[Rfam]
RNA: Small nucleolar RNA snoR74
Organism: Papaver nudicaule
RNA sequence: GAUUUGUUGCCAUUGUGAACAUGUCUCUCGUUGAUGUCAGGGAAAUUUAAGUGAGUCAUUGUUAUUGGGUGAACCUCUGUAAAUGAUUUUACUAACAGAAGGUUCAGUAAACGACGAUACAUUU
Numbered sequence: 001g002a003u004u005u006g007u008u009g010c011c012a013u014u015g016u017g018a019a020c021a022u023g024u025c026u027c028u029c030g031u032u033g034a035u036g037u038c039a040g041g042g043a044a045a046u047u048u049a050a051g052u053g054a055g056u057c058a059u060u061g062u063u064a065u066u067g068g069g070u071g072a073a074c075c076u077c078u079g080u081a082a083a084u085g086a087u088u089u090u091a092c093u094a095a096c097a098g099a100a101g102g103u104u105c106a107g108u109a110a111a112c113g114a115c116g117a118u119a120c121a122u123u124u
Stems, first nucleotide, its partner, number of pairs: 001025001003023001005021002055118003059114005070106007